[Rfam]
RNA sequence: CGCCGAAUCCUGCCGCCGCCCGGAUGACUGGUCGACACGAGUGCAUCGGCAGGAGUGGAGGACCCGAUUACGGCGGGACGACCGGCACCACUGGUCGUCCCUUGGGGUGAAGCCGCCUCGGCGGCCGGGCAUCUUCGCCUGCCCGAACCCGACAGGUCAUCCUUCAUAGGCGGCAGACGAAGGGUU
Dot-bracket structure: ((((...((((((((...............................))))))))((((((....((....................................))(((.....((((....))))..((((..........))))...)))...........)))))).))))..............

c-di-AMP riboswitch aptamer (ydaO/yuaA leader): a 186-nucleotide RNA from Streptomyces netropsis. Lineage of the source: Bacteria > Bacillati > Actinomycetes > Kitasatosporales > Streptomyces. A search with the family's covariance model found it, with a score of 46 bits.